[Rfam]
RNA sequence: AACAGAGUAGGAGACCUCGCGUUAAGUGCCAUCGGGACGGGGAGUUUGCCCGGCGGACGAAGGAAUGUUCCACGAUGGGGUCACCGCACCCGCUGUU
Numbered sequence: 001a002a003c004a005g006a007g008u009a010g011g012a013g014a015c016c017u018c019g020c021g022u023u024a025a026g027u028g029c030c031a032u033c034g035g036g037a038c039g040g041g042g043a044g045u046u047u048g049c050c051c052g053g054c055g056g057a058c059g060a061a062g063g064a065a066u067g068u069u070c071c072a073c074g075a076u077g078g079g080g081u082c083a084c085c086g087c088a089c090c091c092g093c094u095g096u097u
Base pairs, nucleotide, nucleotide: 001097002096003095004094005093010085011084013082014081015080016079017078018077019076020074021073022072026058027057029056030055032053033052034051035050036049040091041090042089044087062071063070064069
RNA: THF (Tetrahydrofolate) riboswitch aptamer
Organism: Firmicutes bacterium CAG:110